[Rfam]
RNA sequence: UUUAGAAAGCAGAAGUACCCACUUCUCACCUGAUUGAAAGAUCAAUAGGUCCAAGCUAAAAUAAUAUGUUAAUGACAUGUUAAGUGGGUGCUAUAUGUACCCACUUUUUUAUAUAACA
Numbered sequence: 001u002u003u004a005g006a007a008a009g010c011a012g013a014a015g016u017a018c019c020c021a022c023u024u025c026u027c028a029c030c031u032g033a034u035u036g037a038a039a040g041a042u043c044a045a046u047a048g049g050u051c052c053a054a055g056c057u058a059a060a061a062u063a064a065u066a067u068g069u070u071a072a073u074g075a076c077a078u079g080u081u082a083a084g085u086g087g088g089u090g091c092u093a094u095a096u097g098u099a100c101c102c103a104c105u106u107u108u109u110u111a112u113a114u115a116a117c118a
Base pairs, nucleotide, nucleotide: 011026012025013024014023015022016021028050029049030048034045035044036043037042083105084104085103086102087101088100089099090098091097